[Rfam]
RNA sequence: AGACGAAAAAGGCAAAGCGAGGCGAAAGCACGUGACGCAAAGCCACCGGUCUUUCCUGCUAAAGGUAUCACUUUUAACAGAUGACAGCGGGGCUACCGAA
Numbered sequence: 001a002g003a004c005g006a007a008a009a010a011g012g013c014a015a016a017g018c019g020a021g022g023c024g025a026a027a028g029c030a031c032g033u034g035a036c037g038c039a040a041a042g043c044c045a046c047c048g049g050u051c052u053u054u055c056c057u058g059c060u061a062a063a064g065g066u067a068u069c070a071c072u073u074u075u076a077a078c079a080g081a082u083g084a085c086a087g088c089g090g091g092g093c094u095a096c097c098g099a100a
Base pairs, nucleotide, nucleotide: 012038013037017033018032019031022029023028041094042093043092044091046090047089048088049085050084051083056080057079058078